Shown here is a 101-nucleotide RNA sequence from Mannheimia varigena, a member of the family "Aggregatibacter sRNA 22". The family's RNA type in Rfam is small RNA. The source organism's lineage runs through Bacteria, Pseudomonadota, Pasteurellaceae, Mannheimia and Mannheimia varigena. The family has 7 seed sequences and 101 matches in Rfam 15.1.
[Rfam]
RNA sequence: UUUUAGCCACAAAACGCAUUGCGUUUUGAACGUUGGCUUUGCCAACGGCUCCGUAAUAGAGAACAAAAUUGGAAACAAUUUUGUGAGUAAUAAUUCACCGC
Numbered sequence: 001u002u003u004u005a006g007c008c009a010c011a012a013a014a015c016g017c018a019u020u021g022c023g024u025u026u027u028g029a030a031c032g033u034u035g036g037c038u039u040u041g042c043c044a045a046c047g048g049c050u051c052c053g054u055a056a057u058a059g060a061g062a063a064c065a066a067a068a069u070u071g072g073a074a075a076c077a078a079u080u081u082u083g084u085g086a087g088u089a090a091u092a093a094u095u096c097a098c099c100g101c
Stems, first nucleotide, its partner, number of pairs: 010028008031047007049059002063084009087098002090095001
Dot-bracket structure: .........((((((((...))))))))..(((((((...))))))).((.......))...(((((((((....)))))))))..((.(....).))...